[Rfam]
Description
The family of this 110-nucleotide sequence from Rossellomorea vietnamensis is "SAM riboswitch aptamer (S box leader)". The SAM riboswitch is found upstream of a number of genes which code for proteins involved in methionine or cysteine biosynthesis in Gram-positive bacteria. The family's consensus secondary structure is taken from published work. NCBI's taxonomy places the organism under Bacteria, Bacillati, Bacilli, Caryophanales, Rossellomorea.
RNA sequence: UUCUUAUCAAGAGAGGUAGAGGGACUGGCCCGAAGACACCUCAGCAACCAGCCAACGUUUUAGGUAUGGUGCUAAUUCCAGCAAGUUGAUAUCAACUUGGACGAUAAGAG
Number, nucleotide and partner (000 for none) at each position: 001u110002u109003c108004u107005u106006a105007u104008c103009a000010a000011g000012a000013g042014a041015g040016g039017u038018a000019g000020a000021g031022g030023g029024a000025c081026u080027g079028g078029c023030c022031c021032g000033a000034a000035g000036a000037c000038a017039c016040c015041u014042c013043a073044g072045c071046a070047a000048c069049c068050a000051g065052c064053c063054a000055a000056c000057g000058u000059u000060u000061u000062a000063g053064g052065u051066a000067u000068g049069g048070u046071g045072c044073u043074a000075a000076u000077u000078c028079c027080a026081g025082c099083a098084a097085g096086u095087u094088g000089a000090u000091a000092u000093c000094a087095a086096c085097u084098u083099g082100g000101a000102c000103g008104a007105u006106a005107a004108g003109a002110g001